The record is a 145-nucleotide sequence from Streptomyces galilaeus, which matches "c-di-AMP riboswitch aptamer (ydaO/yuaA leader)" in Rfam. About the family: This family represents a conserved RNA structure found upstream of the ydaO and yuaA genes in Bacillus subtilis and related genes in other bacteria. The match comes from Rfam's covariance-model search (39 bits). Its family is annotated with regulation of gene expression and cyclic-di-AMP binding in the Gene Ontology.
[Rfam]
RNA sequence: CAAGACGGGUCGCCGGACCGGAACGUCCCCGCGAGGGGAGGCGCCGGGCCGAGCAGCCCUUGGGGUGAAGCCGCAGCUGCGGCCGGGCAACUUCGCCAGCCCGAAUCCGACAGGUCAUCCUUCACAGGCGGCUGACGAAGGGUUG
Numbered sequence: 001c002a003a004g005a006c007g008g009g010u011c012g013c014c015g016g017a018c019c020g021g022a023a024c025g026u027c028c029c030c031g032c033g034a035g036g037g038g039a040g041g042c043g044c045c046g047g048g049c050c051g052a053g054c055a056g057c058c059c060u061u062g063g064g065g066u067g068a069a070g071c072c073g074c075a076g077c078u079g080c081g082g083c084c085g086g087g088c089a090a091c092u093u094c095g096c097c098a099g100c101c102c103g104a105a106u107c108c109g110a111c112a113g114g115u116c117a118u119c120c121u122u123c124a125c126a127g128g129c130g131g132c133u134g135a136c137g138a139a140g141g142g143u144u145g
Stems, first nucleotide, its partner, number of pairs: 011130004019033002035125001037123004045062004063108003071082004085102004